[Rfam]
RNA sequence: GGCUGGUCUGAAGGUAGUGGGUUAUCUCAAUUUCAGCCAGUUACAGAUGGGGCUCCUUGUCCUGAUCUUUCCUCUCUGCUCAUGACUACAUUGGGCUAAUCUUAG
Numbered sequence: 001g002g003c004u005g006g007u008c009u010g011a012a013g014g015u016a017g018u019g020g021g022u023u024a025u026c027u028c029a030a031u032u033u034c035a036g037c038c039a040g041u042u043a044c045a046g047a048u049g050g051g052g053c054u055c056c057u058u059g060u061c062c063u064g065a066u067c068u069u070u071c072c073u074c075u076c077u078g079c080u081c082a083u084g085a086c087u088a089c090a091u092u093g094g095g096c097u098a099a100u101c102u103u104a105g
Stems, first nucleotide, its partner, number of pairs: 001101002004098005011092001014089002017083005036066001039063002

The family of this 105-nucleotide sequence from Canis lupus is "Y RNA". The match comes from Rfam's covariance-model search (46 bits). Rfam classes the family as a non-coding RNA gene.